Shown here is a 57-nucleotide RNA sequence from Methylorubrum extorquens, a member of the family "nhaA-I RNA". NCBI's taxonomy places the organism under Bacteria, Pseudomonadota, Hyphomicrobiales, Methylorubrum, Methylorubrum extorquens. Rfam's curators put it in the seed alignment. It is annotated as a riboswitch. Rfam's curators write: Acidobacteria, Alphaproteobacteria, Betaproteobacteria and Gammaproteobacteria, Verrucomicrobia, cand. division NC10. The base pairs follow the family's consensus structure, which is taken from published work.

[Rfam]
RNA sequence: GGGUGCGCGGUCCGAACGUCGGGCCGGCAGGCUUCAGCGUUGGUCGGGCCGCCAGCG
Number, nucleotide and partner (000 for none) at each position: 001g000002g000003g000004u000005g028006c027007g000008c026009g025010g024011u023012c022013c000014g000015a000016a000017c000018g000019u000020c000021g000022g012023g011024c010025c009026g008027g006028c005029a000030g000031g000032c000033u000034u000035c000036a000037g000038c057039g056040u055041u054042g053043g052044u051045c000046g000047g000048g000049c000050c000051g044052c043053c042054a041055g040056c039057g038